The family of this 394-nucleotide sequence from Candidatus Marinamargulisbacteria bacterium SCGC AAA071-K20 is "Bacterial RNase P class A". About the family: Ribonuclease P (RNase P) is a ubiquitous endoribonuclease, found in archaea, bacteria and eukarya as well as chloroplasts and mitochondria.
RNA sequence: UGGGUCAGAAACACAAUCGCGGGGACUGGCUCAAAAGACAAAUUGACAGUUUUUUGAGCCAGUCUCCGAGGAAAGUCUGGACUUUGUAGGGCAAGACGCCUCCUAACAGGAGGGCAGGGUAACCUGACGGAAAGUGCCACAGAAAAUACACCGCCGAUGGACUUUUGUCACAGGUAAGGUUGAAAUUGUGCGGUAAGAGCGCACACUAGGCAUAGUGAUAUGUCUUGCGGUAAACCCCGUUUGAAGCAAGCUCAAAUAGGAGAAGAGAGUCGGCCCGGCUCUAUGAAUUCUCGGGUAGAGUGCUUGAGCGUAUAUGCAAAUAUAGGCCUAGAUAGAUGAUUGUGCGUCUUUGUUAUGAAGACCGACAGAAUCCGGCUUACUUCUGACCCACAUU
Numbered sequence: 001u002g003g004g005u006c007a008g009a010a011a012c013a014c015a016a017u018c019g020c021g022g023g024g025a026c027u028g029g030c031u032c033a034a035a036a037g038a039c040a041a042a043u044u045g046a047c048a049g050u051u052u053u054u055u056g057a058g059c060c061a062g063u064c065u066c067c068g069a070g071g072a073a074a075g076u077c078u079g080g081a082c083u084u085u086g087u088a089g090g091g092c093a094a095g096a097c098g099c100c101u102c103c104u105a106a107c108a109g110g111a112g113g114g115c116a117g118g119g120u121a122a123c124c125u126g127a128c129g130g131a132a133a134g135u136g137c138c139a140c141a142g143a144a145a146a147u148a149c150a151c152c153g154c155c156g157a158u159g160g161a162c163u164u165u166u167g168u169c170a171c172a173g174g175u176a177a178g179g180u181u182g183a184a185a186u187u188g189u190g191c192g193g194u195a196a197g198a199g200c201g202c203a204c205a206c207u208a209g210g211c212a213u214a215g216u217g218a219u220a221u222g223u224c225u226u227g228c229g230g231u232a233a234a235c236c237c238c239g240u241u242u243g244a245a246g247c248a249a250g251c252u253c254a255a256a257u258a259g260g261a262g263a264a265g266a267g268a269g270u271c272g273g274c275c276c277g278g279c280u281c282u283a284u285g286a287a288u289u290c291u292c293g294g295g296u297a298g299a300g301u302g303c304u305u306g307a308g309c310g311u312a313u314a315u316g317c318a319a320a321u322a323u324a325g326g327c328c329u330a331g332a333u334a335g336a337u338g339a340u341u342g343u344g345c346g347u348c349u350u351u352g353u354u355a356u357g358a359a360g361a362c363c364g365a366c367a368g369a370a371u372c373c374g375g376c377u378u379a380c381u382u383c384u385g386a387c388c389c390a391c392a393u394u
Stems, first nucleotide, its partner, number of pairs: 001390010012344007020068020073378003077375005082246004089276004094242005099113005114128001115126004129237002134235002136231003151179002153175003158170001160169003187205006208225007250301004260292005267281005308327002311324005

Lineage of the source: Bacteria > Bacillati > Candidatus Margulisiibacteriota > Candidatus Marinamargulisbacteria.